Nucleotides: 169
Base pairs, nucleotide, nucleotide: 006165009162010161011156012155013096015152016151017150020146021145022144025142026141027140028139029138030137031136032135039114040113041112042111043110045074046073047072048071049070054065055064056063057062082104083103084102087099088098089097116130117129118128
Number, partner (000 for none) and nucleotide at each position: 001000u002000a003000u004000a005000g006165a007000a008000c009162u010161u011156g012155u013096u014000a015152g016151g017150u018000g019000a020146g021145g022144c023000u024000c025142c026141u027140g028139u029138a030137c031136a032135a033000a034000c035000a036000u037000a038000g039114g040113c041112u042111a043110c044000u045074g046073c047072u048071c049070a050000a051000a052000a053000a054065u055064g056063u057062c058000g059000a060000a061000a062057g063056a064055c065054a066000g067000u068000a069000a070049u071048g072047g073046g074045u075000a076000g077000g078000a079000c080000a081000g082104g083103a084102a085000u086000u087099g088098u089097c090000g091000a092000a093000u094000u095000a096013a097089g098088g099087c100000u101000u102084u103083u104082c105000a106000c107000a108000a109000a110043g111042u112041a113040g114039c115000u116130a117129a118128a119000a120000g121000c122000a123000a124000g125000g126000c127000u128118u129117u130116u131000u132000a133000c134000g135032u136031u137030g138029u139028a140027u141026a142025g143000u144022g145021c146020u147000a148000a149000a150017a151016c152015u153000c154000a155012a156011c157000g158000a159000u160000g161010a162009g163000a164000g165006u166000g167000a168000u169000g
Background: This 169-nucleotide RNA sequence from Enterococcus rivorum belongs to the Rfam family "M-box riboswitch aptamer (ykoK leader)". Rfam describes the family as follows. M-box riboswitch, also know as ykoK leader is described as a metaloregulatory RNA that sense divalent metals and function as a genetic control element of genes related to divalent metal transport in bacteria. Pairs were carried over by alignment from the consensus structure. The literature on the family includes a 2007 paper in Cell by Dann CE 3rd et al., "Structure and mechanism of a metal-sensing regulatory RNA".